[Rfam]
This 117-nucleotide RNA sequence from Paenibacillus antarcticus belongs to the Rfam family "epsC RNA".
RNA sequence: CGGGUGUCCCUGCUAACCCUUACCUUGGCAGGACUCGGCUGUGCUGUAGGUCAUUAUAUGACCGUAGACGUGGAUCGUCAAGGGUGCUGUGCGGGGGACUAGGGUUAAGACUACUCU
Numbered sequence: 001c002g003g004g005u006g007u008c009c010c011u012g013c014u015a016a017c018c019c020u021u022a023c024c025u026u027g028g029c030a031g032g033a034c035u036c037g038g039c040u041g042u043g044c045u046g047u048a049g050g051u052c053a054u055u056a057u058a059u060g061a062c063c064g065u066a067g068a069c070g071u072g073g074a075u076c077g078u079c080a081a082g083g084g085u086g087c088u089g090u091g092c093g094g095g096g097g098a099c100u101a102g103g104g105u106u107a108a109g110a111c112u113a114c115u116c117u
Stems, first nucleotide, its partner, number of pairs: 002018002007033001009032005034095004038090002041087005049063005067079004101117005
The base pairs follow the family's consensus structure, which is taken from published work.